[Rfam]
RNA sequence: AAAAUAGGUAGAGGUGCAAAAAGAAUGAGUACAAAGUUUGAGCUUAGGAAGCGUUGAAGACUUUGGAAAGGUCGAUUUGCCGAAGCGACUGGAGAAUUCCUAACUUUUGUCUGCUGGGGAGUGGUUGAAAAAACGGCUCACUGUCACUACACUUUGUAGUGGAGCACUAACCUAAUGG
Numbered sequence: 001a002a003a004a005u006a007g008g009u010a011g012a013g014g015u016g017c018a019a020a021a022a023g024a025a026u027g028a029g030u031a032c033a034a035a036g037u038u039u040g041a042g043c044u045u046a047g048g049a050a051g052c053g054u055u056g057a058a059g060a061c062u063u064u065g066g067a068a069a070g071g072u073c074g075a076u077u078u079g080c081c082g083a084a085g086c087g088a089c090u091g092g093a094g095a096a097u098u099c100c101u102a103a104c105u106u107u108u109g110u111c112u113g114c115u116g117g118g119g120a121g122u123g124g125u126u127g128a129a130a131a132a133a134c135g136g137c138u139c140a141c142u143g144u145c146a147c148u149a150c151a152c153u154u155u156g157u158a159g160u161g162g163a164g165c166a167c168u169a170a171c172c173u174a175a176u177g178g
Stems, first nucleotide, its partner, number of pairs: 006173003009169003016080005023073002032065008084115004088110002091107004116142002119139004124134003144162007

Source information:
The family of this 178-nucleotide RNA sequence from Salipaludibacillus keqinensis is "Lysine riboswitch aptamer". NCBI's taxonomy places the organism under Bacteria, Bacillati, Bacillota, Bacilli, Salipaludibacillus. The match comes from Rfam's covariance-model search (110 bits).